[Rfam]
RNA sequence: UUGGCAUAAUGAGGAAAGAAUAUAUUUGUGUCUGAUCUGCUAGAUGAGAAAUUCCUCCUACUCAUUCUGA
Numbered sequence: 001u002u003g004g005c006a007u008a009a010u011g012a013g014g015a016a017a018g019a020a021u022a023u024a025u026u027u028g029u030g031u032c033u034g035a036u037c038u039g040c041u042a043g044a045u046g047a048g049a050a051a052u053u054c055c056u057c058c059u060a061c062u063c064a065u066u067c068u069g070a
Stems, first nucleotide, its partner, number of pairs: 006065002009062001029048001032043001
RNA: Small nucleolar RNA Z105
Organism: Setaria italica